[Rfam]
RNA sequence: CUGCACAACCACGGGAGUCCGGGCAUGCCGGGCUGAGAGGGAGCGACAAGCGCUUCGACCGUCGAACCUGAUCCGGAUCAUGCCGGCGCAGGGAGGAGAGAUAUGAGCACG
Numbered sequence: 001c002u003g004c005a006c007a008a009c010c011a012c013g014g015g016a017g018u019c020c021g022g023g024c025a026u027g028c029c030g031g032g033c034u035g036a037g038a039g040g041g042a043g044c045g046a047c048a049a050g051c052g053c054u055u056c057g058a059c060c061g062u063c064g065a066a067c068c069u070g071a072u073c074c075g076g077a078u079c080a081u082g083c084c085g086g087c088g089c090a091g092g093g094a095g096g097a098g099a100g101a102u103a104u105g106a107g108c109a110c111g
Stems, first nucleotide, its partner, number of pairs: 009096002011062004017033005040056005067092004073086004
A member of the RNA family "TPP riboswitch aptamer (THI element)" from Microbacterium ginsengiterrae, 111 nucleotides long. Pairs were carried over by alignment from the consensus structure, which is taken from published work.